[Rfam]
RNA sequence: CUUAAAAAUAUAGCUAGACCAAAGACAGCAGGUGCAUAACGCUUAAAUUCCUGCCGAGGUUAAAGCACAAGUAUUAAUAGUAAAUUAAUGCUGCUAAUUGGAAAAAUUAGUAGAUUGACUAACUUUUAACAGUGAUAACCUCGGCAAACUCUGUCGGGGUUAUUUGUUUAUGAGU
Numbered sequence: 001c002u003u004a005a006a007a008a009u010a011u012a013g014c015u016a017g018a019c020c021a022a023a024g025a026c027a028g029c030a031g032g033u034g035c036a037u038a039a040c041g042c043u044u045a046a047a048u049u050c051c052u053g054c055c056g057a058g059g060u061u062a063a064a065g066c067a068c069a070a071g072u073a074u075u076a077a078u079a080g081u082a083a084a085u086u087a088a089u090g091c092u093g094c095u096a097a098u099u100g101g102a103a104a105a106a107u108u109a110g111u112a113g114a115u116u117g118a119c120u121a122a123c124u125u126u127u128a129a130c131a132g133u134g135a136u137a138a139c140c141u142c143g144g145c146a147a148a149c150u151c152u153g154u155c156g157g158g159g160u161u162a163u164u165u166g167u168u169u170a171u172g173a174g175u
Base pairs, nucleotide, nucleotide: 028054029053030052031051032050034042035041138160139159140158141157142156143155144154145153146152